[Rfam]
RNA sequence: CUAUGAGGGAGCUUUGGGGGCCUGGGCCCCUCCAAUUGAUUCCAAGGCCCUGGAUUGGCUGGUGGGGGGUCCCCAACCCUUGGCA
Numbered sequence: 001c002u003a004u005g006a007g008g009g010a011g012c013u014u015u016g017g018g019g020g021c022c023u024g025g026g027c028c029c030c031u032c033c034a035a036u037u038g039a040u041u042c043c044a045a046g047g048c049c050c051u052g053g054a055u056u057g058g059c060u061g062g063u064g065g066g067g068g069g070u071c072c073c074c075a076a077c078c079c080u081u082g083g084c085a
Base pairs, nucleotide, nucleotide: 004082006080008079009078011077018074019073020072027066028065029064030062031061033057034056035055036054037053
RNA: NoRC associated RNA, pRNA
Organism: Microcaecilia unicolor